The family of this 408-nucleotide RNA from Dicentrarchus labrax is "Vertebrate telomerase RNA". Clan: Telomerase clan. Telomerase is a ribonucleoprotein reverse transcriptase that synthesises telomeric DNA. Telomerase RNAs differ greatly in sequence and structure between vertebrates, ciliates and yeasts, but they share a 5' pseudoknot structure close to the template sequence. Vertebrate telomerase RNAs have a 3' H/ACA snoRNA-like domain. The literature on the family includes a 2005 paper in J Biol Chem by Fragnet et al., "Comparative functional study of the viral telomerase RNA based on natural mutations". The family's RNA type in Rfam is non-coding RNA gene. The source organism's lineage runs through Eukaryota, Chordata, Actinopteri, Euacanthomorphacea and Dicentrarchus. Rfam links the family to the GO terms telomere maintenance via telomerase, telomerase catalytic core complex and telomerase activity.
[Rfam]
RNA sequence: CUACCGUUCGCGGGGUGUCUCCUCUAACCCUAAAUCAGGGCGGCCUCCUGUACUGAUCGUUCGCUGUUUUUUUUCCCUCCUCUCUGGCUUUCAGCGAACUACAGGAGGCGUGUUAGAGAUGGCCGUUGGGAGCGUUUACGAACAACAAGAGAGAUUUAAAUUAAAUUUAAAAGAAAAAAGCCGAGAGGAUCACUCCGCCGUGUUCAGUGUCCCGGUCAGGAAGCACCGAGAUCCUCCCGCCGCGGUUAGCUCGGCUGCCGCGAAGAGUUCGUCUCUGCUGCUCCGGUGUCUUCCUGUCGGGAUCGUACUUUAUUACAUUGUAAAGCAACUGAGCAGAGUAAACCUGAGCACGGUGACUCUGCCGGACCCUCCCCGUGGUCUGGCUGGGAAGCCUAAGCUCAAACAUUU
Numbered sequence: 001c002u003a004c005c006g007u008u009c010g011c012g013g014g015g016u017g018u019c020u021c022c023u024c025u026a027a028c029c030c031u032a033a034a035u036c037a038g039g040g041c042g043g044c045c046u047c048c049u050g051u052a053c054u055g056a057u058c059g060u061u062c063g064c065u066g067u068u069u070u071u072u073u074u075c076c077c078u079c080c081u082c083u084c085u086g087g088c089u090u091u092c093a094g095c096g097a098a099c100u101a102c103a104g105g106a107g108g109c110g111u112g113u114u115a116g117a118g119a120u121g122g123c124c125g126u127u128g129g130g131a132g133c134g135u136u137u138a139c140g141a142a143c144a145a146c147a148a149g150a151g152a153g154a155u156u157u158a159a160a161u162u163a164a165a166u167u168u169a170a171a172a173g174a175a176a177a178a179a180g181c182c183g184a185g186a187g188g189a190u191c192a193c194u195c196c197g198c199c200g201u202g203u204u205c206a207g208u209g210u211c212c213c214g215g216u217c218a219g220g221a222a223g224c225a226c227c228g229a230g231a232u233c234c235u236c237c238c239g240c241c242g243c244g245g246u247u248a249g250c251u252c253g254g255c256u257g258c259c260g261c262g263a264a265g266a267g268u269u270c271g272u273c274u275c276u277g278c279u280g281c282u283c284c285g286g287u288g289u290c291u292u293c294c295u296g297u298c299g300g301g302a303u304c305g306u307a308c309u310u311u312a313u314u315a316c317a318u319u320g321u322a323a324a325g326c327a328a329c330u331g332a333g334c335a336g337a338g339u340a341a342a343c344c345u346g347a348g349c350a351c352g353g354u355g356a357c358u359c360u361g362c363c364g365g366a367c368c369c370u371c372c373c374c375g376u377g378g379u380c381u382g383g384c385u386g387g388g389a390a391g392c393c394u395a396a397g398c399u400c401a402a403a404c405a406u407u408u
Base pairs, nucleotide, nucleotide: 005200006199010198011197012196013195014194015193016192017191020189021188022187044108045107046106047105048104059099060098061097062096063095064094065093066092084180085179089178090177091176203333204332205331206330207329208328215298217296218295219294220293221292224288225287226286227285228284241262242261243260244259245258247257248256249255250254264276265275266274267273346400347399348398349397352393353392354391357388359386361384362383365380366379367378368377